[Rfam]
RNA sequence: AAUAAAGGUAGAGGCGCGAUACUUAAGAGUACUAUUGAUGAGGUAAGCACUGUGAGUUAAUAGGAAAGGAAUUAUCGCCGAAGCAUACAACUAAUGCUUUAAGGUUGUAUAGCUGGGGAUGUAUAUAAUAUAUAUAUCACUGUCACAAACUUGUUUUUGUGGUGAGCUAUCAUUUGA
Dot-bracket structure: ......(((((....((((((.((.......((((((((................))))))))......)).))))))...(((((((((((..........)))))))).)))((.((((((((.....)))))))).)).(((((((......)))))))....)))))......